[Rfam]
RNA: ffh sRNA
RNA sequence: UUAUGCCGGGAUCGCCCUCUGUCAGCGCGUUGCGCCCACAGGGGCGUCACUG
Dot-bracket structure: ...............(((((((..((((...))))..)))))))........